[Rfam]
RNA: Eukaryotic large subunit ribosomal RNA, nucleotides 751 to 1074
Organism: Plasmodium vivax
Nucleotides: 324
Stems, first nucleotide, its partner, number of pairs: 005180003009176009020067003025062002028059002071078002092134005100125005136163002138160005144151001183322002186319001190312006199288011210276001212244004219236007249272003253269002256267002290300002
Number, partner (000 for none) and nucleotide at each position: 001000g002000a003000g004000u005180c006179u007178a008000g009176c010175a011174a012173a013172u014171g015170u016169g017168c018000a019000a020067g021066u022065g023000u024000g025062u026061a027000u028059g029058a030000u031000a032000u033000g034000u035000u036000a037000a038000a039000c040000a041000u042000u043000u044000g045000g046000u047000a048000c049000u050000u051000c052000g053000c054000u055000a056000c057000c058029u059028u060000c061026u062025a063000u064000a065022c066021g067020c068000a069000c070000a071078a072077u073000u074000a075000a076000u077072g078071u079000a080000a081000u082000a083000u084000g085000u086000u087000a088000a089000u090000u091000a092134u093133u094132g095131u096130a097000g098000a099000a100125c101124u102123g103122g104121c105000u106000g107000g108000a109000a110000g111000g112000u113000a114000a115000c116000u117000u118000c119000c120000u121104g122103u123102c124101g125100g126000c127000g128000c129000a130096u131095a132094c133093a134092a135000u136163a137162c138160c139159g140158g141157u142156a143000a144151g145000c146000a147000a148000u149000u150000a151144c152000g153000c154000u155000a156142u157141a158140u159139u160138g161000a162137g163136u164000a165000a166000g167000a168017g169016c170015a171014u172013a173012u174011u175010u176009g177000g178007u179006a180005g181000g182000a183322c184321c185000c186319g187000a188000g189000a190312g191311g192310c193309u194308u195307u196000g197000a198000a199288c200287u201286a202285a203284g204283c205282g206281u207280g208279a209278c210276g211000a212244g213243a214242u215241u216000g217000a218000a219236g220235u221234c222233a223232g224231a225230c226000g227000a228000a229000a230225g231224u232223c233222u234221g235220a236219u237000g238000g239000a240000a241215g242214a243213u244212c245000g246000a247000a248000u249272u250271g251270a252000u253269a254268c255000u256267g257266a258000c259000g260000u261000g262000c263000a264000a265000a266257u267256c268254g269253u270251u271250c272249a273000u274000u275000u276210c277000a278209g279208u280207c281206a282205c283204g284203u285202u286201u287200a288199g289000g290300g291299g292000c293000g294000a295000a296000a297000g298000a299291c300290u301000a302000a303000u304000c305000g306000a307195a308194a309193a310192g311191c312190c313000u314000a315000u316000u317000a318000g319186c320000u321184g322183g323000u324000u